[Rfam]
RNA sequence: CACGAGGCUAGAGUCACGCUAUUACAAACUCAUUGUCCUGGUGUGCUAGAGUGCUCGUAGAGUAACAUCUUUGCCUAUUCAUUGGCUGUAGUCUCUUGUGGCCCAGUCAAUCACCAGCUCAGAUACAGAA
Numbered sequence: 001c002a003c004g005a006g007g008c009u010a011g012a013g014u015c016a017c018g019c020u021a022u023u024a025c026a027a028a029c030u031c032a033u034u035g036u037c038c039u040g041g042u043g044u045g046c047u048a049g050a051g052u053g054c055u056c057g058u059a060g061a062g063u064a065a066c067a068u069c070u071u072u073g074c075c076u077a078u079u080c081a082u083u084g085g086c087u088g089u090a091g092u093c094u095c096u097u098g099u100g101g102c103c104c105a106g107u108c109a110a111u112c113a114c115c116a117g118c119u120c121a122g123a124u125a126c127a128g129a130a
Base pairs, nucleotide, nucleotide: 002058003057004056005055006054007052008051009050012047013046015045016044017043018042019041020040024036025035026034069122070121073118074117081111082110083109084108085107087105088104092100

Small nucleolar RNA SNORA3/SNORA45 family: a 130-nucleotide sequence from Oncorhynchus mykiss. The base pairs follow the family's consensus structure, which was predicted with RNAalifold. From the family's description: The members of this family belong to the H/ACA class of snoRNAs which are thought to guide the sites of modification of uridines to pseudouridines. This family includes mouse snoMBI-28 and human homologues ACA3 (SNORA3) and ACA3-2 (SNORA45). Both ACA3 and ACA3-2 share the same host gene. MBI-28, ACA3 and ACA3-2 are all predicted to guide the pseudouridylation of residues in 28S rRNA. Rfam 15.1 lists 2,080 matches to the family in 639 species. A search with the family's covariance model found it, with a score of 80 bits. The source organism's lineage runs through Eukaryota, Opisthokonta, Euteleostomi, Actinopteri and Oncorhynchus.